[Rfam]
RNA sequence: AACGAAUGAUGUGUGUGUAUCGGAAAUGUACUUUAGACUGAACGAAUGAUGUGUGUGUAUCGGAAAUGUACUUUAAUCUGAAAGAGAGUUCUCUGCGAAACUGAUUUUUGGCGGUGGGCAGUUGAGUUUCAUGUAAUCUAUUGUUUUAUCAACAAUCAUUUUCUCCACAUUU
Numbered sequence: 001a002a003c004g005a006a007u008g009a010u011g012u013g014u015g016u017g018u019a020u021c022g023g024a025a026a027u028g029u030a031c032u033u034u035a036g037a038c039u040g041a042a043c044g045a046a047u048g049a050u051g052u053g054u055g056u057g058u059a060u061c062g063g064a065a066a067u068g069u070a071c072u073u074u075a076a077u078c079u080g081a082a083a084g085a086g087a088g089u090u091c092u093c094u095g096c097g098a099a100a101c102u103g104a105u106u107u108u109u110g111g112c113g114g115u116g117g118g119c120a121g122u123u124g125a126g127u128u129u130c131a132u133g134u135a136a137u138c139u140a141u142u143g144u145u146u147u148a149u150c151a152a153c154a155a156u157c158a159u160u161u162u163c164u165c166c167a168c169a170u171u172u
Base pairs, nucleotide, nucleotide: 004096006094008091009090015071016070017069018068019067020066110164111163113161114159115158116157117156121153122152123151124150